[Rfam]
RNA sequence: GGCCUUAUACAGGGUAGCAUAAUGGGCUACUGACCCCGCCUUCAAACCUAUUUGGAGACUAUAAGGUC
Numbered sequence: 001g002g003c004c005u006u007a008u009a010c011a012g013g014g015u016a017g018c019a020u021a022a023u024g025g026g027c028u029a030c031u032g033a034c035c036c037c038g039c040c041u042u043c044a045a046a047c048c049u050a051u052u053u054g055g056a057g058a059c060u061a062u063a064a065g066g067u068c
Stems, first nucleotide, its partner, number of pairs: 001068001004065006010038001013031006024048002032039001040057007

Shown here is a 68-nucleotide RNA from Mesoplasma florum, a member of the family "2dG-I riboswitch aptamer (M. florum)".
Pairs were carried over by alignment from the consensus structure, which is taken from published work.